[Rfam]
RNA sequence: CCCGCCAAGCCUCUCGACAAUACUCAAAUGUGCGGGU
Numbered sequence: 001c002c003c004g005c006c007a008a009g010c011c012u013c014u015c016g017a018c019a020a021u022a023c024u025c026a027a028a029u030g031u032g033c034g035g036g037u
Stems, first nucleotide, its partner, number of pairs: 001036005008024002